A member of the RNA family "Glycine riboswitch aptamer" from Leucobacter edaphi, 101 nucleotides long. A search with the family's covariance model found it, with a score of 58 bits.
RNA sequence: UAAGUCGUGGCGGGAGAGUCCGGAACCCCCUGGGGAAGCCGGCGCCGUAGGAGCAAUUUCCUCCCCGGGAAUCUCUCAGGCCCCCGUACCGCUGCGACGCG
Numbered sequence: 001u002a003a004g005u006c007g008u009g010g011c012g013g014g015a016g017a018g019u020c021c022g023g024a025a026c027c028c029c030c031u032g033g034g035g036a037a038g039c040c041g042g043c044g045c046c047g048u049a050g051g052a053g054c055a056a057u058u059u060c061c062u063c064c065c066c067g068g069g070a071a072u073c074u075c076u077c078a079g080g081c082c083c084c085c086g087u088a089c090c091g092c093u094g095c096g097a098c099g100c101g
Stems, first nucleotide, its partner, number of pairs: 006096008020042004044081003047077001051075003057068002